[Rfam]
RNA sequence: UCUCCUGUUCUUGGAAUGCAGGGUUUUGUUCAGAACACUUGUAUGUAACAUAGAGAGAAACAGUUCAGAUGUGCAAUGUCUUCAGUACCAGAGUGUCUCCAGUCAUCUGGCGUUAUCCUGAAUGCCUGGUACAAAG
Numbered sequence: 001u002c003u004c005c006u007g008u009u010c011u012u013g014g015a016a017u018g019c020a021g022g023g024u025u026u027u028g029u030u031c032a033g034a035a036c037a038c039u040u041g042u043a044u045g046u047a048a049c050a051u052a053g054a055g056a057g058a059a060a061c062a063g064u065u066c067a068g069a070u071g072u073g074c075a076a077u078g079u080c081u082u083c084a085g086u087a088c089c090a091g092a093g094u095g096u097c098u099c100c101a102g103u104c105a106u107c108u109g110g111c112g113u114u115a116u117c118c119u120g121a122a123u124g125c126c127u128g129g130u131a132c133a134a135a136g
Stems, first nucleotide, its partner, number of pairs: 001058004016044005022038001024037001026035001074128001088110004093106003
The record is a 136-nucleotide RNA from Albula glossodonta, which matches "Small nucleolar RNA SNORA57" in Rfam. Rfam classes the family as an H/ACA-box small nucleolar RNA. A search with the family's covariance model found it, with a score of 43 bits. Rfam links the family to the GO terms RNA processing and nucleolus. The literature on the family includes a 2003 paper in Nucleic Acids Res by Vitali et al., "Identification of 13 novel human modification guide RNAs". About the family: U99 belongs to the H/ACA class of snoRNAs which are thought to guide the sites of modification of uridines to pseudouridines, the target for this family is unknown.